Rfam assigns this 89-nucleotide RNA from Actinoplanes campanulatus to the family "Selenocysteine transfer RNA".
[Rfam]
RNA sequence: GGGAGACGCCAGCCGAUGGGUGCCGGCCGCCGCCUCGAAAGCGGUUGGAGGUUUGACGCCUCGUGGGGGUUCGACUCCCUCCGUCUCCG
Numbered sequence: 001g002g003g004a005g006a007c008g009c010c011a012g013c014c015g016a017u018g019g020g021u022g023c024c025g026g027c028c029g030c031c032g033c034c035u036c037g038a039a040a041g042c043g044g045u046u047g048g049a050g051g052u053u054u055g056a057c058g059c060c061u062c063g064u065g066g067g068g069g070u071u072c073g074a075c076u077c078c079c080u081c082c083g084u085c086u087c088c089g
Base pairs, nucleotide, nucleotide: 002088003087004086005085006084007083008082012027013026014025015024017022029045030044031043032042033041048062049061050060051059052058066080067079068078069077
Dot-bracket structure: .(((((((...((((.(....).)))).(((((.......)))))..(((((.....)))))...((((.......)))).))))))).